[Rfam]
RNA sequence: GGGUCGGGCGGGCGCCGGUGGGACGGCGCUCCGCGGAUGGGCCCCGACGGUCCCUCUUUCUGGUGCGGACGCCGCGGCCCGGCGAGCGUC
Numbered sequence: 001g002g003g004u005c006g007g008g009c010g011g012g013c014g015c016c017g018g019u020g021g022g023a024c025g026g027c028g029c030u031c032c033g034c035g036g037a038u039g040g041g042c043c044c045c046g047a048c049g050g051u052c053c054c055u056c057u058u059u060c061u062g063g064u065g066c067g068g069a070c071g072c073c074g075c076g077g078c079c080c081g082g083c084g085a086g087c088g089u090c
Stems, first nucleotide, its partner, number of pairs: 001044005010032003013028005068090005073084002
RNA: Rhodo-rpoB RNA